[Rfam]
Description:
The record is a 91-nucleotide sequence from Paractinoplanes ferrugineus, which matches "ZMP/ZTP riboswitch aptamer (pfl RNA motif)" in Rfam. For this family Rfam cites "Co-crystal structure of the Fusobacterium ulcerans ZTP riboswitch using an X-ray free-electron laser" (Jones et al., Acta Crystallogr F Struct Biol Commun, 2019). The organism belongs to Paractinoplanes, within Bacteria.

RNA sequence: UCCGCGGGCCGUGACUGGCGCGUUCGGAUGGGGAAACCAUCGGGGAGCGGCUCCGUCGCCUGACGACCUGCCGUGCGCCUGGGCCUCUGCA
Numbered sequence: 001u002c003c004g005c006g007g008g009c010c011g012u013g014a015c016u017g018g019c020g021c022g023u024u025c026g027g028a029u030g031g032g033g034a035a036a037c038c039a040u041c042g043g044g045g046a047g048c049g050g051c052u053c054c055g056u057c058g059c060c061u062g063a064c065g066a067c068c069u070g071c072c073g074u075g076c077g078c079c080u081g082g083g084c085c086u087c088u089g090c091a
Base pairs, nucleotide, nucleotide: 006053007052008051009050010049011048012047015044016043017079018078019077020076021075028040029039030038031037070084071083072082